The family of this 71-nucleotide sequence from Bucco capensis is "Small nucleolar RNA SNORD24". A search with the family's covariance model found it, with a score of 56 bits. The literature on the family includes a 1995 paper in Nucleic Acids Res by Qu et al., "U24, a novel intron-encoded small nucleolar RNA with two 12 nt long, phylogenetically conserved complementarities to 28S rRNA".
RNA sequence: UGCAAAUGAUGCUAACUCUGUGCUGUCUGAAUGCACCUGAUGACACAACAACCACCAAGAUCGCUGAUGCA
Numbered sequence: 001u002g003c004a005a006a007u008g009a010u011g012c013u014a015a016c017u018c019u020g021u022g023c024u025g026u027c028u029g030a031a032u033g034c035a036c037c038u039g040a041u042g043a044c045a046c047a048a049c050a051a052c053c054a055c056c057a058a059g060a061u062c063g064c065u066g067a068u069g070c071a
Stems, first nucleotide, its partner, number of pairs: 001071004